[Rfam]
RNA sequence: AGUUGGCCCUAAGGUACUGAGUUAUCUCAAUUGAUUUGUUUACAAUCACAGAUCAGAUUCCUUGUUCUGCUCUCUACCCUCUUCUCACUACUGCAGUUGACUAAUCUUUU
Number, nucleotide and partner (000 for none) at each position: 001a000002g105003u104004u103005g102006g101007c000008c099009c000010u000011a097012a000013g000014g094015u093016a089017c000018u087019g086020a085021g084022u000023u000024a000025u000026c000027u000028c000029a000030a000031u000032u000033g072034a071035u000036u000037u000038g067039u000040u000041u000042a000043c000044a000045a000046u000047c000048a000049c000050a000051g000052a000053u000054c000055a000056g000057a000058u000059u000060c000061c000062u000063u000064g000065u000066u000067c038068u000069g000070c000071u034072c033073u000074c000075u000076a000077c000078c000079c000080u000081c000082u000083u000084c021085u020086c019087a018088c000089u016090a000091c000092u000093g015094c014095a000096g000097u011098u000099g008100a000101c006102u005103a004104a003105u002106c000107u000108u000109u000110u000
Shown here is a 110-nucleotide RNA sequence from Carlito syrichta, a member of the family "Y RNA". Rfam's curators write: Y RNAs are components of the Ro ribonucleoprotein particle (Ro RNP), in association with Ro60 and La proteins. The Y RNAs and Ro60 and La proteins are well conserved, but the function of the Ro RNP is not known. In humans the RNA component can be one of four small RNAs -- hY1, hY3, hY4 and hY5. The base pairs follow the family's consensus structure, which is taken from published work.